Description: The record is a 92-nucleotide RNA sequence from Arabis nemorensis, which matches "Small nucleolar RNA R64/Z200 family" in Rfam. NCBI's taxonomy places the organism under Eukaryota, Viridiplantae, Euphyllophyta, Arabideae, Arabis. By type it is a C/D-box small nucleolar RNA. Rfam 15.1 lists 748 matches to the family in 228 species. The literature on the family includes a 2002 paper in Mol Cell Biol by Galardi et al., "Purified box C/D snoRNPs are able to reproduce site-specific 2'-O-methylation of target RNA in vitro".
RNA sequence: CUUCUGCUAUGAUGAUUUUGAAUAAAAUUCACAUGUCAGACUUCAGAGAUUUUAUAAUCAAUGAGAAAAUAAAUUCCGUAUCUGAGCAGAAG
Numbered sequence: 001c002u003u004c005u006g007c008u009a010u011g012a013u014g015a016u017u018u019u020g021a022a023u024a025a026a027a028u029u030c031a032c033a034u035g036u037c038a039g040a041c042u043u044c045a046g047a048g049a050u051u052u053u054a055u056a057a058u059c060a061a062u063g064a065g066a067a068a069a070u071a072a073a074u075u076c077c078g079u080a081u082c083u084g085a086g087c088a089g090a091a092g
Stems, first nucleotide, its partner, number of pairs: 001092007048059004